[Rfam]
RNA sequence: GGGAUUGAGGAAUCACCCCCGACACCCUACAUGGGUCGUGCCGGCUUGCCGGCUAUGGCGAUAAAUGAUGCCGUGGAAUAGACGCAGCGGACCCGGGGGCAGUACCCGGCGGCUCCACCAUUCUCAAUCCCGUUGUCGGGGUGAAUUGCGGGGCCGAACCAGGAUCGACGUGUGUUCAAAGACGGUGUUUUUGCCCGGCCUGAAUGCGCCGUUAAACCGUUCAAAACCCACAAAUGCCAACGACAACGAGGCAUUCGCGAUCGCGGCGUAAUUGAGUCCUAACGGACGAAAUUACCCCAAGAGAACGCGGCACGGGCCACGCCGGGCAACAGAAGUGGAUUCC
Numbered sequence: 001g002g003g004a005u006u007g008a009g010g011a012a013u014c015a016c017c018c019c020c021g022a023c024a025c026c027c028u029a030c031a032u033g034g035g036u037c038g039u040g041c042c043g044g045c046u047u048g049c050c051g052g053c054u055a056u057g058g059c060g061a062u063a064a065a066u067g068a069u070g071c072c073g074u075g076g077a078a079u080a081g082a083c084g085c086a087g088c089g090g091a092c093c094c095g096g097g098g099g100c101a102g103u104a105c106c107c108g109g110c111g112g113c114u115c116c117a118c119c120a121u122u123c124u125c126a127a128u129c130c131c132g133u134u135g136u137c138g139g140g141g142u143g144a145a146u147u148g149c150g151g152g153g154c155c156g157a158a159c160c161a162g163g164a165u166c167g168a169c170g171u172g173u174g175u176u177c178a179a180a181g182a183c184g185g186u187g188u189u190u191u192u193g194c195c196c197g198g199c200c201u202g203a204a205u206g207c208g209c210c211g212u213u214a215a216a217c218c219g220u221u222c223a224a225a226a227c228c229c230a231c232a233a234a235u236g237c238c239a240a241c242g243a244c245a246a247c248g249a250g251g252c253a254u255u256c257g258c259g260a261u262c263g264c265g266g267c268g269u270a271a272u273u274g275a276g277u278c279c280u281a282a283c284g285g286a287c288g289a290a291a292u293u294a295c296c297c298c299a300a301g302a303g304a305a306c307g308c309g310g311c312a313c314g315g316g317c318c319a320c321g322c323c324g325g326g327c328a329a330c331a332g333a334a335g336u337g338g339a340u341u342c343c
Stems, first nucleotide, its partner, number of pairs: 040053005057195005068188007083174003087171003093109005110156007196211004201223003308324004314341002317338002